[Rfam]
RNA: c-di-GMP-II-GAG riboswitch aptamer
RNA sequence: AUGCUAUGGGGAAGCGAUGAACCUCUGCGAAUGUUAGCGGGCGCUGGUGCGGAGGGGAGCGAGUGGCGCGACCGACCCCGAAGGCA
Numbered sequence: 001a002u003g004c005u006a007u008g009g010g011g012a013a014g015c016g017a018u019g020a021a022c023c024u025c026u027g028c029g030a031a032u033g034u035u036a037g038c039g040g041g042c043g044c045u046g047g048u049g050c051g052g053a054g055g056g057g058a059g060c061g062a063g064u065g066g067c068g069c070g071a072c073c074g075a076c077c078c079c080g081a082a083g084g085c086a
Stems, first nucleotide, its partner, number of pairs: 004083002007080005014060002022055008039073002041069005